Shown here is a 233-nucleotide RNA from Salvelinus namaycush, a member of the family "Small nucleolar RNA SNORA53". Taxonomically the source falls in Salvelinus (Eukaryota, Craniata, Teleostomi, Protacanthopterygii). It is annotated as an H/ACA-box small nucleolar RNA. A search with the family's covariance model found it, with a score of 105 bits. The snoRNA ACA53 belongs to the H/ACA family of pseudouridylation guide snoRNAs. Gene Ontology terms of the family: RNA processing and nucleolus.

[Rfam]
RNA sequence: AACACGCUCCUUAGAUCCACCUCUGGAGGGCACUCCUGUGCUGAUGCUGUUGUCUGAGUGCUGCAGCUCCAGCCUGGAGGCCCUCAGCAGCUUUUUGGCUGUACAGUUGGAGGUGCUUGAGUCAUUGGCGUGUGAGAGCAGUCUACCUGCCUCCCAGCACCCCUGCUGCACUGGCAACCCUCAGUUCCACUGAUGGGACCCUACCAGUAGAGCUAUGCUGGGGGAUGGACAAA
Numbered sequence: 001a002a003c004a005c006g007c008u009c010c011u012u013a014g015a016u017c018c019a020c021c022u023c024u025g026g027a028g029g030g031c032a033c034u035c036c037u038g039u040g041c042u043g044a045u046g047c048u049g050u051u052g053u054c055u056g057a058g059u060g061c062u063g064c065a066g067c068u069c070c071a072g073c074c075u076g077g078a079g080g081c082c083c084u085c086a087g088c089a090g091c092u093u094u095u096u097g098g099c100u101g102u103a104c105a106g107u108u109g110g111a112g113g114u115g116c117u118u119g120a121g122u123c124a125u126u127g128g129c130g131u132g133u134g135a136g137a138g139c140a141g142u143c144u145a146c147c148u149g150c151c152u153c154c155c156a157g158c159a160c161c162c163c164u165g166c167u168g169c170a171c172u173g174g175c176a177a178c179c180c181u182c183a184g185u186u187c188c189a190c191u192g193a194u195g196g197g198a199c200c201c202u203a204c205c206a207g208u209a210g211a212g213c214u215a216u217g218c219u220g221g222g223g224g225a226u227g228g229a230c231a232a233a
Stems, first nucleotide, its partner, number of pairs: 002133007010121005018115008026085005034078003040073004046067004052061001054060001087102006147228003151224001154221001156219004166207003172203003178197003